[Rfam]
RNA sequence: AAGCGAAGGACCCAGCAGGAAGCGUGUAUACUCAUGGAAUGAGGCUUCUCUAACAAUUUUAUUUACCCUUCGUAGAUUGAAUCUCUCCAAGAGAUCAUUGGUGAUCUGUUAUCGGAUUGUCGCGAGUUCUUGGUGUAUAGUU
Numbered sequence: 001a002a003g004c005g006a007a008g009g010a011c012c013c014a015g016c017a018g019g020a021a022g023c024g025u026g027u028a029u030a031c032u033c034a035u036g037g038a039a040u041g042a043g044g045c046u047u048c049u050c051u052a053a054c055a056a057u058u059u060u061a062u063u064u065a066c067c068c069u070u071c072g073u074a075g076a077u078u079g080a081a082u083c084u085c086u087c088c089a090a091g092a093g094a095u096c097a098u099u100g101g102u103g104a105u106c107u108g109u110u111a112u113c114g115g116a117u118u119g120u121c122g123c124g125a126g127u128u129c130u131u132g133g134u135g136u137a138u139a140g141u142u
Stems, first nucleotide, its partner, number of pairs: 003073007012019002024050001026048001031043005087133006100121002103118006

This 142-nucleotide RNA from Brassica carinata belongs to the Rfam family "Small nucleolar RNA snoR145". The base pairs follow the family's consensus structure, which was predicted with mfold. The organism belongs to Brassica, within Eukaryota.